Rfam assigns this 138-nucleotide RNA from Cohaesibacter sp. CAU 1516 to the family "Alphaproteobacterial sRNA BjrC1505". The base pairs follow the family's consensus structure. It scores 86 bits against the family's covariance model.
RNA sequence: UGCUGCAUAUUAACGCGUUGUUAAUCUAUUUUUGAGUUAAUAAAGGGUGUCCAUACUAUAUGGAUGACGAGUGGCUCCUGUCACUCUGUUUGACGCCUCCCUGUUAACUCCUGAGAGCCGCUAUGCGGCUCUUUUUUU
Numbered sequence: 001u002g003c004u005g006c007a008u009a010u011u012a013a014c015g016c017g018u019u020g021u022u023a024a025u026c027u028a029u030u031u032u033u034g035a036g037u038u039a040a041u042a043a044a045g046g047g048u049g050u051c052c053a054u055a056c057u058a059u060a061u062g063g064a065u066g067a068c069g070a071g072u073g074g075c076u077c078c079u080g081u082c083a084c085u086c087u088g089u090u091u092g093a094c095g096c097c098u099c100c101c102u103g104u105u106a107a108c109u110c111c112u113g114a115g116a117g118c119c120g121c122u123a124u125g126c127g128g129c130u131c132u133u134u135u136u137u138u
Base pairs, nucleotide, nucleotide: 001047003045004044005016006015017041018040022039023038024037025036027034049065050064051063052062069086070085071084072083073082092105093104094103095102113133114132115131116130117129118128119127120126121125